[Rfam]
The record is a 94-nucleotide sequence from Flavobacterium psychrophilum, which matches "Flavo-1 RNA" in Rfam. Lineage of the source: Bacteria > Pseudomonadati > Flavobacteriales > Flavobacteriaceae > Flavobacterium psychrophilum.

RNA sequence: UUUUCUCUGCGUGAGGGAUUGAAGUGGAGCUCUUUUUUUGUUUGGCGUUUUUUAGCCAAAUAAAAAAAAGCGGGAACGAAAAGCCCGACCCGUA
Numbered sequence: 001u002u003u004u005c006u007c008u009g010c011g012u013g014a015g016g017g018a019u020u021g022a023a024g025u026g027g028a029g030c031u032c033u034u035u036u037u038u039u040g041u042u043u044g045g046c047g048u049u050u051u052u053u054a055g056c057c058a059a060a061u062a063a064a065a066a067a068a069a070g071c072g073g074g075a076a077c078g079a080a081a082a083g084c085c086c087g088a089c090c091c092g093u094a
Stems, first nucleotide, its partner, number of pairs: 015086003019082002024077002029071003035066012
Description: It is annotated as a small RNA.